[Rfam]
RNA: Chlorobi-1 RNA
Organism: Chlorobium phaeovibrioides
RNA sequence: AAAAAGCCUCAUGCAAAUGAGGUGGAGCAUGCGUAAUGGGGGACGCAUGCUCACCAGAAAACGGCC
Dot-bracket structure: .....(((((((....))))))).((((((((((........))))))))))..............